[Rfam]
RNA: Plastid-rpl16 group II-D1 intron
Organism: Aphyllon californicum
RNA sequence: AAGAGCUUCGAGCCAAUAAAGACUAAAAAGGUUGACUCAAAA
Numbered sequence: 001a002a003g004a005g006c007u008u009c010g011a012g013c014c015a016a017u018a019a020a021g022a023c024u025a026a027a028a029a030g031g032u033u034g035a036c037u038c039a040a041a042a
Stems, first nucleotide, its partner, number of pairs: 007041002010038003014034004
Dot-bracket structure: ......((.(((.((((.............)))).))).)).